[Rfam]
c-di-AMP riboswitch aptamer (ydaO/yuaA leader): a 217-nucleotide sequence from Actinospica robiniae. It scores 76 bits against the family's covariance model.
RNA sequence: GGGUCGAGAACGCCUAAUCCUGCCCAUCGGCCAGCGGAUUCCAACUAAGUAAGGGGCAGGAGCGGAGGACCCGAAUAUCGCCGGGACGCGGACUGUAUCCGCAGGUCCAAGGCUUGGGGUGAAUCUUCCGGGGGGAUAAAUAAUCUCCCGGUGGUAGGGCCACUUUCUUCCGGCCCGAAUCCGACAGCUCACUUCGCAGGCGUGGGAGAGAGGAAAA
Numbered sequence: 001g002g003g004u005c006g007a008g009a010a011c012g013c014c015u016a017a018u019c020c021u022g023c024c025c026a027u028c029g030g031c032c033a034g035c036g037g038a039u040u041c042c043a044a045c046u047a048a049g050u051a052a053g054g055g056g057c058a059g060g061a062g063c064g065g066a067g068g069a070c071c072c073g074a075a076u077a078u079c080g081c082c083g084g085g086a087c088g089c090g091g092a093c094u095g096u097a098u099c100c101g102c103a104g105g106u107c108c109a110a111g112g113c114u115u116g117g118g119g120u121g122a123a124u125c126u127u128c129c130g131g132g133g134g135g136a137u138a139a140a141u142a143a144u145c146u147c148c149c150g151g152u153g154g155u156a157g158g159g160c161c162a163c164u165u166u167c168u169u170c171c172g173g174c175c176c177g178a179a180u181c182c183g184a185c186a187g188c189u190c191a192c193u194u195c196g197c198a199g200g201c202g203u204g205g206g207a208g209a210g211a212g213g214a215a216a217a
Base pairs, nucleotide, nucleotide: 011202012201013200014199018061019060020059021058022057023056024055025054062197063196064195065194066193067192072116073115117182118181119180125154126153128151129150130149131148132147133146134145135144157176158175159174160173